[Rfam]
RNA sequence: UACAGUCUUUAUGCAGGGUGGAUGGUGGCUUCACUCCCAAAUGAAAGGGGGUGGUCGCCGAUGGUCACAACAUAUGAAGCAUUGACGUUAAUGAUUACGUUCAGUUCGUUAAUUGUGUCUGUGAUCGCUGUUGUUGUUUCUAUGAACAAAAAGAAAUAACCCACCCUGCCUCGGCCAACAGUGUAGGGUGAGUUAUGCUUUGCAUUGCCUGGCCACUGCUCUUCUUGCAGUGAAGGCUGUAUAUGGGAGAUCUGGUUGCAGCCAGAUCUC
Numbered sequence: 001u002a003c004a005g006u007c008u009u010u011a012u013g014c015a016g017g018g019u020g021g022a023u024g025g026u027g028g029c030u031u032c033a034c035u036c037c038c039a040a041a042u043g044a045a046a047g048g049g050g051g052u053g054g055u056c057g058c059c060g061a062u063g064g065u066c067a068c069a070a071c072a073u074a075u076g077a078a079g080c081a082u083u084g085a086c087g088u089u090a091a092u093g094a095u096u097a098c099g100u101u102c103a104g105u106u107c108g109u110u111a112a113u114u115g116u117g118u119c120u121g122u123g124a125u126c127g128c129u130g131u132u133g134u135u136g137u138u139u140c141u142a143u144g145a146a147c148a149a150a151a152a153g154a155a156a157u158a159a160c161c162c163a164c165c166c167u168g169c170c171u172c173g174g175c176c177a178a179c180a181g182u183g184u185a186g187g188g189u190g191a192g193u194u195a196u197g198c199u200u201u202g203c204a205u206u207g208c209c210u211g212g213c214c215a216c217u218g219c220u221c222u223u224c225u226u227g228c229a230g231u232g233a234a235g236g237c238u239g240u241a242u243a244u245g246g247g248a249g250a251u252c253u254g255g256u257u258g259c260a261g262c263c264a265g266a267u268c269u270c
Stems, first nucleotide, its partner, number of pairs: 001241005007235003011231001012215002014168008025160002031054008067137006080093002103129003216230004247270010